Background: This 379-nucleotide RNA from Symbiobacterium thermophilum belongs to the Rfam family "transfer-messenger RNA". The literature on the family includes a 2003 paper in Nucleic Acids Res by Zwieb et al., "tmRDB (tmRNA database)". Its Rfam clan is "tRNA clan". Lineage of the source: Bacteria > Bacillati > Clostridia > Symbiobacterium > Symbiobacterium thermophilum. It scores 132 bits against the family's covariance model.

RNA sequence: GGGGGCGAAAUAGGUUCGACGGGGGAGAGUUCAUCCAGGAAAGCGAGCCGAGGUGGCGGCAGGCCUCGUUAAACAGGCCGCAAGCAAUUAAGUGCCAACGAAGACUUCGCUCUCGCUGCGUAAGCAGCGCGCGGCCUAAGGCCGCGAUCGCUCCUCCGGACUGCGGGCACCGUGCGCCGGGGUUGUAGCGUCAACGCAACGGGCUGUUCCGUCCGGGGUCACCGCGGACCCGGGCGGCGAGGAUCCUUCUGCGGUUGGUCCGGACUGCAGCCGGCCGUCAGGCGGCAGGCCGGGCGAGACGCAAACUGACGGCUGCGCUCGGAGACGUCCUGUUUGAAUCUCCUUCGGACGCGGGAGGCAGAGCCCGCCGCCUCCACCA
Numbered sequence: 001g002g003g004g005g006c007g008a009a010a011u012a013g014g015u016u017c018g019a020c021g022g023g024g025g026a027g028a029g030u031u032c033a034u035c036c037a038g039g040a041a042a043g044c045g046a047g048c049c050g051a052g053g054u055g056g057c058g059g060c061a062g063g064c065c066u067c068g069u070u071a072a073a074c075a076g077g078c079c080g081c082a083a084g085c086a087a088u089u090a091a092g093u094g095c096c097a098a099c100g101a102a103g104a105c106u107u108c109g110c111u112c113u114c115g116c117u118g119c120g121u122a123a124g125c126a127g128c129g130c131g132c133g134g135c136c137u138a139a140g141g142c143c144g145c146g147a148u149c150g151c152u153c154c155u156c157c158g159g160a161c162u163g164c165g166g167g168c169a170c171c172g173u174g175c176g177c178c179g180g181g182g183u184u185g186u187a188g189c190g191u192c193a194a195c196g197c198a199a200c201g202g203g204c205u206g207u208u209c210c211g212u213c214c215g216g217g218g219u220c221a222c223c224g225c226g227g228a229c230c231c232g233g234g235c236g237g238c239g240a241g242g243a244u245c246c247u248u249c250u251g252c253g254g255u256u257g258g259u260c261c262g263g264a265c266u267g268c269a270g271c272c273g274g275c276c277g278u279c280a281g282g283c284g285g286c287a288g289g290c291c292g293g294g295c296g297a298g299a300c301g302c303a304a305a306c307u308g309a310c311g312g313c314u315g316c317g318c319u320c321g322g323a324g325a326c327g328u329c330c331u332g333u334u335u336g337a338a339u340c341u342c343c344u345u346c347g348g349a350c351g352c353g354g355g356a357g358g359c360a361g362a363g364c365c366c367g368c369c370g371c372c373u374c375c376a377c378c379a
Base pairs, nucleotide, nucleotide: 001375002374003373004372005371006370007369020347021346022345023344024343025342026341027340028339031337032336033335036332037331038330039329040328044321045320046319047318048317049068050067051066052065053064056081057080058079059078060077112131114129115128116127117126118125119124149190150189151188152187154185156180157179158178159177162176163175164174167204168203170201173198209237210236211235212234213233214232215231216230221255222254223253224252225251258295259294260293261292262291263290265288266287267286270283271282272281273313275311351368352367353366354365355364